[Rfam]
RNA sequence: CCAUGGCGGUGGCUGGGGUCAGCCCCACGGCGGCGGCUGG
Numbered sequence: 001c002c003a004u005g006g007c008g009g010u011g012g013c014u015g016g017g018g019u020c021a022g023c024c025c026c027a028c029g030g031c032g033g034c035g036g037c038u039g040g
Stems, first nucleotide, its partner, number of pairs: 001030002004027003
RNA: Prion pseudoknot